[Rfam]
This 80-nucleotide sequence from Deinococcus cellulosilyticus belongs to the Rfam family "ZMP/ZTP riboswitch aptamer (pfl RNA motif)".

RNA sequence: GCCUGUUGCGGUGACUGGCGAAGCGUGGAGUACCACGGGGGAGCCGCAACACAAACCUGCCGCACGCCUGGGCGAAACAG
Numbered sequence: 001g002c003c004u005g006u007u008g009c010g011g012u013g014a015c016u017g018g019c020g021a022a023g024c025g026u027g028g029a030g031u032a033c034c035a036c037g038g039g040g041g042a043g044c045c046g047c048a049a050c051a052c053a054a055a056c057c058u059g060c061c062g063c064a065c066g067c068c069u070g071g072g073c074g075a076a077a078c079a080g
Stems, first nucleotide, its partner, number of pairs: 004051009015040002017068004025036004058074004

NCBI's taxonomy places the organism under Bacteria, Thermotogati, Deinococcota, Deinococcaceae, Deinococcus cellulosilyticus.